[Rfam]
A member of the RNA family "Purine riboswitch aptamer" from Clostridium sp. N3C, 102 nucleotides long.
NCBI's taxonomy places the organism under Bacteria, Bacillati, Bacillota, Clostridiaceae, Clostridium.
Pairs were carried over by alignment from the consensus structure, which is taken from published work.
Riboswitches are metabolite binding domains within certain messenger RNAs that serve as precision sensors for their corresponding targets.
RNA sequence: UUUUAGGUAAAAUUUAAAGCUCAUAUAUUUUCGAAAAUACGGUUCGAAAGUUUCUACAAAGCAACCUUAAAUUGCUUUACUAUGAGUGAAUAUGCUGUUUUU
Numbered sequence: 001u002u003u004u005a006g007g008u009a010a011a012a013u014u015u016a017a018a019g020c021u022c023a024u025a026u027a028u029u030u031u032c033g034a035a036a037a038u039a040c041g042g043u044u045c046g047a048a049a050g051u052u053u054c055u056a057c058a059a060a061g062c063a064a065c066c067u068u069a070a071a072u073u074g075c076u077u078u079a080c081u082a083u084g085a086g087u088g089a090a091u092a093u094g095c096u097g098u099u100u101u102u
Stems, first nucleotide, its partner, number of pairs: 019087007029049007058078007